RNA sequence: GUUGAGGCUAGAGUCAUGUUUGGAUAUUGGUUAUUGCCUUAGUGUGCUAGAGUCCUCCAAGAGUAACUGCUGACCUUAUUCACUGGCUGUGGCCCUCGUGGCAGUCAGUCACCAGGUUAGUGACAUGC
Numbered sequence: 001g002u003u004g005a006g007g008c009u010a011g012a013g014u015c016a017u018g019u020u021u022g023g024a025u026a027u028u029g030g031u032u033a034u035u036g037c038c039u040u041a042g043u044g045u046g047c048u049a050g051a052g053u054c055c056u057c058c059a060a061g062a063g064u065a066a067c068u069g070c071u072g073a074c075c076u077u078a079u080u081c082a083c084u085g086g087c088u089g090u091g092g093c094c095c096u097c098g099u100g101g102c103a104g105u106c107a108g109u110c111a112c113c114a115g116g117u118u119a120g121u122g123a124c125a126u127g128c
Base pairs, nucleotide, nucleotide: 002059004057005056006055007053008052009051012048013047015046016045017044018043019042020041023038025036026035070120071119072118073117074116075115076114082109083108084107085106086105088103089102093101

Rfam assigns this 128-nucleotide RNA sequence from Prolemur simus to the family "Small nucleolar RNA SNORA3/SNORA45 family". Gene Ontology terms of the family: nucleolus and RNA processing. From the family's description: The members of this family belong to the H/ACA class of snoRNAs which are thought to guide the sites of modification of uridines to pseudouridines. This family includes mouse snoMBI-28 and human homologues ACA3 (SNORA3) and ACA3-2 (SNORA45). Both ACA3 and ACA3-2 share the same host gene. MBI-28, ACA3 and ACA3-2 are all predicted to guide the pseudouridylation of residues in 28S rRNA. Its Rfam clan is "SNORA3 clan". It is annotated as an H/ACA-box small nucleolar RNA.